[Rfam]
RNA sequence: CUGUUGCGGUUAAAAAGCUCGUAGUCGGACUUGUGUCCCACGCUGCCGGUUCACCGCCCGUCGGUGUUUAACUGGCACGCACGUGCGGACGUCCUGCCGGUGGCCCGAGCCGGCGCUCGCGGGUGAGGGGGCGGUAACGUCUCACACCCCGGGUCGUCUCGGGGAGGGCCUACACAAUCCCGUCGCGGUGCUCUUGACCGAGUGUCUCGAUGGGCCGGCACGUUUACUUUGAACAAAUUAGAGUGCUUAAAGCAGGCAGCAGCCGCCUGAAUACCGAGUGCAUGGAAUAAUAGAAUAGGACCUCGGUUCUAUUUUGUUGGUUUUCGGAAUCCCCGAGGUAAUGAUCAAAAGGGACAGACGGGGGCAUUCGUAUUGCGACGUUAGAGGUGAAAUUCUUGGAUCGUCGCAAGACGGACAGAAGCGAAAGCAUUUGCCAAGAAUGUUUUCUCUGAUCAAGAACGAAAGUUAGAGGUUCGAAGGCGAUCAGAUACCGCCCUAGUUCUAACCAUAAACGAUGCCAGCCAGCAAUCCGCCGAAGUUCCUCCGAUGACUCGGCGGGCGGCUUCCGGGAAACCAAAGCUUUUGGGUUCCGG
Numbered sequence: 001c002u003g004u005u006g007c008g009g010u011u012a013a014a015a016a017g018c019u020c021g022u023a024g025u026c027g028g029a030c031u032u033g034u035g036u037c038c039c040a041c042g043c044u045g046c047c048g049g050u051u052c053a054c055c056g057c058c059c060g061u062c063g064g065u066g067u068u069u070a071a072c073u074g075g076c077a078c079g080c081a082c083g084u085g086c087g088g089a090c091g092u093c094c095u096g097c098c099g100g101u102g103g104c105c106c107g108a109g110c111c112g113g114c115g116c117u118c119g120c121g122g123g124u125g126a127g128g129g130g131g132c133g134g135u136a137a138c139g140u141c142u143c144a145c146a147c148c149c150c151g152g153g154u155c156g157u158c159u160c161g162g163g164g165a166g167g168g169c170c171u172a173c174a175c176a177a178u179c180c181c182g183u184c185g186c187g188g189u190g191c192u193c194u195u196g197a198c199c200g201a202g203u204g205u206c207u208c209g210a211u212g213g214g215c216c217g218g219c220a221c222g223u224u225u226a227c228u229u230u231g232a233a234c235a236a237a238u239u240a241g242a243g244u245g246c247u248u249a250a251a252g253c254a255g256g257c258a259g260c261a262g263c264c265g266c267c268u269g270a271a272u273a274c275c276g277a278g279u280g281c282a283u284g285g286a287a288u289a290a291u292a293g294a295a296u297a298g299g300a301c302c303u304c305g306g307u308u309c310u311a312u313u314u315u316g317u318u319g320g321u322u323u324u325c326g327g328a329a330u331c332c333c334c335g336a337g338g339u340a341a342u343g344a345u346c347a348a349a350a351g352g353g354a355c356a357g358a359c360g361g362g363g364g365c366a367u368u369c370g371u372a373u374u375g376c377g378a379c380g381u382u383a384g385a386g387g388u389g390a391a392a393u394u395c396u397u398g399g400a401u402c403g404u405c406g407c408a409a410g411a412c413g414g415a416c417a418g419a420a421g422c423g424a425a426a427g428c429a430u431u432u433g434c435c436a437a438g439a440a441u442g443u444u445u446u447c448u449c450u451g452a453u454c455a456a457g458a459a460c461g462a463a464a465g466u467u468a469g470a471g472g473u474u475c476g477a478a479g480g481c482g483a484u485c486a487g488a489u490a491c492c493g494c495c496c497u498a499g500u501u502c503u504a505a506c507c508a509u510a511a512a513c514g515a516u517g518c519c520a521g522c523c524a525g526c527a528a529u530c531c532g533c534c535g536a537a538g539u540u541c542c543u544c545c546g547a548u549g550a551c552u553c554g555g556c557g558g559g560c561g562g563c564u565u566c567c568g569g570g571a572a573a574c575c576a577a578a579g580c581u582u583u584u585g586g587g588u589u590c591c592g593g
Base pairs, nucleotide, nucleotide: 007592008591009590015589017460019458020457024453025452026451351447352446353445354444355442356441359438363435364434365433366432369413370412373409374408375407376406377405378404379403380402384395385394386393421428422427465506466505467504468503469502470501475499479495480494481493482492517588518587519586520581521580522579524564525563526562529559530558531557532556533555534554535553536552538551539550540549568575569574
RNA: Eukaryotic small subunit ribosomal RNA, nucleotides 622 to 1214